This 119-nucleotide RNA sequence from Vigna radiata belongs to the Rfam family "mir-395 microRNA precursor family".
Its family is annotated with RISC complex and miRNA-mediated post-transcriptional gene silencing in the Gene Ontology.
mir-395 was identified in both Arabidopsis thaliana and Oryza sativa computationally and was later experimentally verified. mir-395 is thought to target mRNAs coding for ATP sulphurylases.
[Rfam]
RNA sequence: CUGUCUCCUGGAGUUCCUCUGAACGCUUCAUAAGGACUAACUAGUGUAGACCUUAUUAUAUAUAUAUAUCCCUUUCUUUCUCUCUUCAAUGAAGUGUUUGGGGGAACUCUUGGGCUCAA
Numbered sequence: 001c002u003g004u005c006u007c008c009u010g011g012a013g014u015u016c017c018u019c020u021g022a023a024c025g026c027u028u029c030a031u032a033a034g035g036a037c038u039a040a041c042u043a044g045u046g047u048a049g050a051c052c053u054u055a056u057u058a059u060a061u062a063u064a065u066a067u068a069u070c071c072c073u074u075u076c077u078u079u080c081u082c083u084c085u086u087c088a089a090u091g092a093a094g095u096g097u098u099u100g101g102g103g104g105a106a107c108u109c110u111u112g113g114g115c116u117c118a119a
Stems, first nucleotide, its partner, number of pairs: 006114003011109010022099002024096008034086002

The family's consensus secondary structure was predicted with PFOLD. Rfam 15.1 lists 2,798 matches to the family in 234 species.